[Rfam]
RNA sequence: ACCUGUAACGGGUCCUCGAAAGAAAGCACAUCGUUAUCCCCACUCAGCUCCCUGUCUACACUUCAGCAGGAGCCCGGUUCGAGUCCUGUGGUGUCCUUUAAUCCACUCACUUGGGUAACCAGUGAUGCUGGAGGGACCUAAGCAAUGAAUACAAUUUGAUGAGGGAAGCAAUUCCGCAAUCGAGUAUUCACCAUGGAACGGCGGCGCCGGAUUACUCCUAUUGGGGUUGGAAGUCGAGUGGCGGGCUGGUGUGUUGACUUUUAUU
Numbered sequence: 001a002c003c004u005g006u007a008a009c010g011g012g013u014c015c016u017c018g019a020a021a022g023a024a025a026g027c028a029c030a031u032c033g034u035u036a037u038c039c040c041c042a043c044u045c046a047g048c049u050c051c052c053u054g055u056c057u058a059c060a061c062u063u064c065a066g067c068a069g070g071a072g073c074c075c076g077g078u079u080c081g082a083g084u085c086c087u088g089u090g091g092u093g094u095c096c097u098u099u100a101a102u103c104c105a106c107u108c109a110c111u112u113g114g115g116u117a118a119c120c121a122g123u124g125a126u127g128c129u130g131g132a133g134g135g136a137c138c139u140a141a142g143c144a145a146u147g148a149a150u151a152c153a154a155u156u157u158g159a160u161g162a163g164g165g166a167a168g169c170a171a172u173u174c175c176g177c178a179a180u181c182g183a184g185u186a187u188u189c190a191c192c193a194u195g196g197a198a199c200g201g202c203g204g205c206g207c208c209g210g211a212u213u214a215c216u217c218c219u220a221u222u223g224g225g226g227u228u229g230g231a232a233g234u235c236g237a238g239u240g241g242c243g244g245g246c247u248g249g250u251g252u253g254u255u256g257a258c259u260u261u262u263a264u265u
Stems, first nucleotide, its partner, number of pairs: 001013003018262005027253007037245003040241006047234003051230002060227003064223003068219005074210005079204003083199002086196006093137001095135005101129001104127002107125005113120002138142001146190007156183005165174003
This 265-nucleotide RNA from Alternaria atra belongs to the Rfam family "Fungal signal recognition particle RNA".
The literature on the family includes a 2002 paper in Curr Opin Struct Biol by Wild et al., "Towards the structure of the mammalian signal recognition particle".
By type it is a non-coding RNA gene.
Clan: SRP clan.
Rfam 15.1 lists 748 matches to the family in 741 species.